[Rfam]
RNA sequence: GGAGGAGACUGAUGAUGGAACCGUCUGACACGCCGCCCCCCGCCGGCGCCGACGGUGCCUCCAAGGUCGACCCUCCAGCUCGUCUCUCCCCGUCGUCACCUACCUCUCUCUGUCACUCGCUCGCUCACUCACUCUUGCGCCUGAUUUGCUUC
Numbered sequence: 001g002g003a004g005g006a007g008a009c010u011g012a013u014g015a016u017g018g019a020a021c022c023g024u025c026u027g028a029c030a031c032g033c034c035g036c037c038c039c040c041c042g043c044c045g046g047c048g049c050c051g052a053c054g055g056u057g058c059c060u061c062c063a064a065g066g067u068c069g070a071c072c073c074u075c076c077a078g079c080u081c082g083u084c085u086c087u088c089c090c091c092g093u094c095g096u097c098a099c100c101u102a103c104c105u106c107u108c109u110c111u112g113u114c115a116c117u118c119g120c121u122c123g124c125u126c127a128c129u130c131a132c133u134c135u136u137g138c139g140c141c142u143g144a145u146u147u148g149c150u151u152c
Stems, first nucleotide, its partner, number of pairs: 001152004011097008020056006031048005037042001
Dot-bracket structure: ((((......((((((((.((((((.....(((((.(....).)))))..)))))).................................))))))))...................................................))))

Small nucleolar RNA Z178: a 152-nucleotide RNA. It is one of the family's seed sequences. Its family is annotated with RNA processing and nucleolus in the Gene Ontology. The literature on the family includes a 2003 paper in Nucleic Acids Res by Chen et al., "The high diversity of snoRNAs in plants: identification and comparative study of 120 snoRNA genes from Oryza sativa".